[Rfam]
RNA sequence: UCCUGUCUCGCGAAAAGUGGCCGACUGUGGCCGCCUGCCCCCAUCUACUCGUGAUGGAUCGGGCUAGCGAGGCGGGUUAUU
Numbered sequence: 001u002c003c004u005g006u007c008u009c010g011c012g013a014a015a016a017g018u019g020g021c022c023g024a025c026u027g028u029g030g031c032c033g034c035c036u037g038c039c040c041c042c043a044u045c046u047a048c049u050c051g052u053g054a055u056g057g058a059u060c061g062g063g064c065u066a067g068c069g070a071g072g073c074g075g076g077u078u079a080u081u
Base pairs, nucleotide, nucleotide: 001076002075003074005073006072007071008070009069010068011067017034018033019032020031021030022029037064038063039062040061
Description
This 81-nucleotide RNA belongs to the Rfam family "DUF3800-IX RNA". The family's consensus secondary structure is taken from published work. By type it is a small RNA. About the family: Actinobacteria, Firmicutes (1 example), Nitrospirae, Proteobacteria, Verrucomicrobia (1 example).